[Rfam]
RNA sequence: CCGUGCUCCAUGACGGGAAUCGCUGAAACGCCCCCGGCACCGGGCGAUUCCCAGAUCCCGCACGG
Numbered sequence: 001c002c003g004u005g006c007u008c009c010a011u012g013a014c015g016g017g018a019a020u021c022g023c024u025g026a027a028a029c030g031c032c033c034c035c036g037g038c039a040c041c042g043g044g045c046g047a048u049u050c051c052c053a054g055a056u057c058c059c060g061c062a063c064g065g
Stems, first nucleotide, its partner, number of pairs: 001065005015052010030038003
The record is a 65-nucleotide RNA sequence from Pardalotus punctatus, which matches "Selenocysteine insertion sequence 1" in Rfam.
On this family, see Walczak et al., RNA 1996: "A novel RNA structural motif in the selenocysteine insertion element of eukaryotic selenoprotein mRNAs".
It scores 47 bits against the family's covariance model.
Lineage of the source: Eukaryota > Deuterostomia > Dipnotetrapodomorpha > Passeriformes > Pardalotus.